[Rfam]
RNA sequence: CGGAACCGACAGGGGAGCGCUACGGCGCUGAGAGUGCGGAACGAACCCGCAGACCCUUAGCCACCUGACCUGGGUAAUACCAGCGAAGGAAGUCGAGGACGAACGGCC
Numbered sequence: 001c002g003g004a005a006c007c008g009a010c011a012g013g014g015g016a017g018c019g020c021u022a023c024g025g026c027g028c029u030g031a032g033a034g035u036g037c038g039g040a041a042c043g044a045a046c047c048c049g050c051a052g053a054c055c056c057u058u059a060g061c062c063a064c065c066u067g068a069c070c071u072g073g074g075u076a077a078u079a080c081c082a083g084c085g086a087a088g089g090a091a092g093u094c095g096a097g098g099a100c101g102a103a104c105g106g107c108c
Base pairs, nucleotide, nucleotide: 007095008094009093010092011057012056013055014054017028018027019026020025035051036050037049038048039047064089065088066087070083071082072081073080
This 108-nucleotide RNA sequence from Haloactinospora alba belongs to the Rfam family "TPP riboswitch aptamer (THI element)". The match comes from Rfam's covariance-model search (63 bits). Vitamin B(1) in its active form thiamin pyrophosphate (TPP) is an essential coenzyme that is synthesised by coupling of pyrimidine and thiazole moieties in bacteria. Its family is annotated with thiamine pyrophosphate binding in the Gene Ontology.